[Rfam]
RNA sequence: CAGCAUGUGGUUGCUGCAAAGCCAGGGGCGGUAGCGUG
Numbered sequence: 001c002a003g004c005a006u007g008u009g010g011u012u013g014c015u016g017c018a019a020a021g022c023c024a025g026g027g028g029c030g031g032u033a034g035c036g037u038g
Base pairs, nucleotide, nucleotide: 008024009023010022011021
A member of the RNA family "JUMPstart RNA" from Atlantibacter hermannii, 38 nucleotides long. The base pairs follow the family's consensus structure, which is taken from published work. A search with the family's covariance model found it, with a score of 38 bits. Rfam classes the family as a cis-regulatory element. NCBI's taxonomy places the organism under Bacteria, Pseudomonadati, Pseudomonadota, Enterobacteriaceae, Atlantibacter hermannii. The family has 128 seed sequences and 288 matches in Rfam 15.1.